mir-8517 microRNA precursor family: a 102-nucleotide sequence from Plutella xylostella.
[Rfam]
RNA sequence: UUACUGGAUGCUUUAGCUAUUGAACUGUUUUGUCACUCUCUGUCAAAGAACAAAUUGUUCUCUGUCCGACAAAACAGUACAAUAGCUAAAGCGUACAGUAAC
Numbered sequence: 001u002u003a004c005u006g007g008a009u010g011c012u013u014u015a016g017c018u019a020u021u022g023a024a025c026u027g028u029u030u031u032g033u034c035a036c037u038c039u040c041u042g043u044c045a046a047a048g049a050a051c052a053a054a055u056u057g058u059u060c061u062c063u064g065u066c067c068g069a070c071a072a073a074a075c076a077g078u079a080c081a082a083u084a085g086c087u088a089a090a091g092c093g094u095a096c097a098g099u100a101a102c
Stems, first nucleotide, its partner, number of pairs: 001101006011091012024078005029069002032066001034064002049059004
Dot-bracket structure: ((((((....((((((((((((.(((((((.(.((.............((((...))))...)).).))....))))).))))))))))))....)))))).